[Rfam]
RNA: Small nucleolar RNA Z199
RNA sequence: GGAUCAAGUGAUGAUUAUAAACUGCAACAAUAUGAUGGGAGUAAUACUCCUAUGAUUCCCAAGUAUUUAAGUCUCUGAUGAUC
Numbered sequence: 001g002g003a004u005c006a007a008g009u010g011a012u013g014a015u016u017a018u019a020a021a022c023u024g025c026a027a028c029a030a031u032a033u034g035a036u037g038g039g040a041g042u043a044a045u046a047c048u049c050c051u052a053u054g055a056u057u058c059c060c061a062a063g064u065a066u067u068u069a070a071g072u073c074u075c076u077g078a079u080g081a082u083c
Stems, first nucleotide, its partner, number of pairs: 001083002004081003037051005
Dot-bracket structure: ((.(((..............................(((((.....)))))...........................)))))